This 114-nucleotide RNA from [Mycoplasma] mobile belongs to the Rfam family "FMN riboswitch aptamer (RFN element)". Rfam describes the family as follows. The RFN element is a highly conserved domain that is found frequently in the 5'-untranslated regions of prokaryotic mRNAs that encode for flavin mononucleotide (FMN) biosynthesis and transport proteins.

RNA sequence: UGAGUCUUUCAGGGACAUGUUUAAUUCAGUACCGGUAGUAAAAGUCUACGAGCAAAAAGCUGAUUCUGUGUAAUUCAGAAACCGACGGUAAAGUCCGGAUGAGAAAAAGAAAGA
Numbered sequence: 001u002g003a004g005u006c007u008u009u010c011a012g013g014g015a016c017a018u019g020u021u022u023a024a025u026u027c028a029g030u031a032c033c034g035g036u037a038g039u040a041a042a043a044g045u046c047u048a049c050g051a052g053c054a055a056a057a058a059g060c061u062g063a064u065u066c067u068g069u070g071u072a073a074u075u076c077a078g079a080a081a082c083c084g085a086c087g088g089u090a091a092a093g094u095c096c097g098g099a100u101g102a103g104a105a106a107a108a109g110a111a112a113g114a
Stems, first nucleotide, its partner, number of pairs: 005110005018028002031094002033084002035049004044082002052060002064080005086097003